Rfam assigns this 294-nucleotide sequence from Cordyceps fumosorosea to the family "5' ureB small RNA". For this family Rfam cites "Helicobacter pylori 5'ureB-sRNA, a cis-encoded antisense small RNA, negatively regulates ureAB expression by transcription termination" (Wen et al., J Bacteriol, 2013).

RNA sequence: CUCCUGCGCCUGCUGCGGACAGAUCAGGUGAAUGUGCGUGUCGAUGGCUCCCGCGGUGACAAUCUUGUUCUCGCCCGCGAUCACGUCGGUGCAGCUGCCGACGACCAUGUUGGGCGCGACGCCGUCCAUGACGUCGGGGUUGCCAGCCUUGCCGAUGCCGACGAUCAUGCCGGCCUUGACGCCGAUGUCGGCCUUGUAGAUGCCCGAGUGGUCGACGAUGAGGGCGUUGGUGAUGACGAGGUCGAGCGCGUCGGCGUCCGGCCGCCCCGUCGCCUGGCCCAUGCCCUCGCGUAG
Number, nucleotide and partner (000 for none) at each position: 001c294002u293003c000004c000005u291006g290007c289008g288009c000010c000011u163012g162013c000014u160015g159016c000017g075018g074019a000020c000021a071022g070023a000024u000025c000026a000027g000028g000029u000030g051031a000032a000033u000034g048035u000036g000037c046038g045039u044040g000041u000042c000043g000044a039045u038046g037047g000048c034049u000050c000051c030052c000053g000054c000055g000056g068057u067058g066059a000060c000061a000062a000063u000064c000065u000066u058067g057068u056069u000070c022071u021072c000073g000074c018075c017076c000077g152078c000079g000080a149081u000082c000083a000084c000085g000086u000087c000088g000089g000090u000091g143092c142093a141094g140095c139096u000097g000098c138099c137100g135101a134102c133103g000104a000105c000106c000107a000108u130109g129110u000111u128112g127113g126114g125115c124116g122117c121118g000119a000120c000121g117122c116123c000124g115125u114126c113127c112128a111129u109130g108131a000132c000133g102134u101135c100136g000137g099138g098139g095140u094141u093142g092143c091144c000145a000146g000147c000148c000149u080150u000151g000152c077153c000154g000155a000156u000157g000158c000159c015160g014161a000162c012163g011164a000165u000166c000167a000168u000169g278170c277171c276172g275173g000174c000175c269176u000177u000178g266179a000180c264181g263182c261183c260184g000185a000186u000187g000188u000189c000190g000191g225192c224193c223194u222195u221196g000197u000198a000199g000200a000201u000202g000203c000204c000205c214206g213207a000208g000209u000210g000211g000212u000213c206214g205215a000216c000217g000218a000219u000220g000221a195222g194223g193224g192225c191226g000227u000228u000229g258230g257231u000232g000233a000234u000235g252236a251237c000238g000239a000240g249241g000242u000243c000244g000245a000246g000247c000248g000249c240250g000251u236252c235253g000254g000255c000256g000257u230258c229259c000260g183261g182262c000263c181264g180265c000266c178267c000268c000269g175270u000271c000272g000273c000274c000275u172276g171277g170278c169279c000280c000281a000282u000283g000284c000285c000286c000287u000288c008289g007290c006291g005292u000293a002294g001